[Rfam]
RNA: Eukaryotic large subunit ribosomal RNA, nucleotides 415 to 641
Organism: Pichia kudriavzevii
RNA sequence: GGUAUUGCGCCCGACAUGGGGAUUGCGCACCGCUGCCUCUCGUGGGCGGCGCUCUGGGCUUUCCCUGGGCCAGCAUCGGUUCUUGCUGCAGGAGAAGGGGUUCUGGAACGUGGCUCUUCGGAGUGUUAUAGCCAGGGCCAGAUGCUGCGUGCGGGGACCGAGGACUGCGGCCGUGUAGGUCACGGAUGCUGGCAGAACGGCGCAACACCGCCCGUCUUGAAACAUGG
Number, nucleotide and partner (000 for none) at each position: 001g209002g208003u207004a000005u205006u204007g203008c202009g201010c200011c199012c000013g000014a000015c000016a000017u067018g066019g065020g064021g063022a062023u000024u000025g000026c000027g000028c000029a000030c000031c000032g000033c000034u000035g000036c000037c000038u000039c000040u000041c000042g000043u000044g000045g000046g000047c000048g000049g000050c000051g000052c000053u000054c000055u000056g000057g000058g000059c000060u000061u000062u022063c021064c020065c019066u018067g017068g000069g000070c000071c191072a190073g189074c188075a187076u186077c185078g000079g000080u000081u000082c000083u000084u000085g000086c000087u000088g000089c000090a000091g000092g000093a000094g000095a000096a000097g000098g000099g000100g000101u000102u000103c000104u000105g000106g000107a000108a000109c000110g000111u000112g000113g000114c000115u000116c000117u000118u000119c000120g000121g000122a000123g000124u000125g000126u000127u000128a000129u000130a000131g000132c000133c000134a000135g000136g000137g000138c000139c000140a000141g000142a000143u000144g000145c000146u000147g000148c000149g000150u000151g000152c000153g000154g000155g000156g000157a000158c000159c000160g000161a000162g000163g000164a000165c000166u000167g000168c000169g000170g000171c000172c000173g000174u000175g000176u000177a000178g000179g000180u000181c000182a000183c000184g000185g077186a076187u075188g074189c073190u072191g071192g000193c000194a000195g000196a000197a000198c000199g011200g010201c009202g008203c007204a006205a005206c000207a003208c002209c001210g000211c000212c227213c226214g225215u224216c000217u000218u000219g000220a000221a000222a000223c000224a215225u214226g213227g212